The family of this 85-nucleotide RNA from Macaca mulatta is "mir-365 microRNA precursor family".
The source organism's lineage runs through Eukaryota, Vertebrata, Amniota, Catarrhini and Macaca.
A reference for the family is Xie et al. (2005), "Systematic discovery of regulatory motifs in human promoters and 3' UTRs by comparison of several mammals", Nature.
Pairs were carried over by alignment from the consensus structure, which was predicted with RNAalifold.
It is one of the family's seed sequences.
Gene Ontology terms of the family: miRNA-mediated post-transcriptional gene silencing and RISC complex.
RNA sequence: CAGCAAGAAAAAUGAGGGACUUUCAGGGGCAGCUGUGUUUUCUGACUCAGUCAUAAUGCCCCUAAAAAUCCUUAUUGUUCUUGCA
Numbered sequence: 001c002a003g004c005a006a007g008a009a010a011a012a013u014g015a016g017g018g019a020c021u022u023u024c025a026g027g028g029g030c031a032g033c034u035g036u037g038u039u040u041u042c043u044g045a046c047u048c049a050g051u052c053a054u055a056a057u058g059c060c061c062c063u064a065a066a067a068a069u070c071c072u073u074a075u076u077g078u079u080c081u082u083g084c085a
Base pairs, nucleotide, nucleotide: 015073016072017071018070019069021067022066023065025063026062027061028060029059030058031057034055035054036053037052
Dot-bracket structure: ..............(((((.(((.(((((((..((((..............)))).))))))).))).)))))............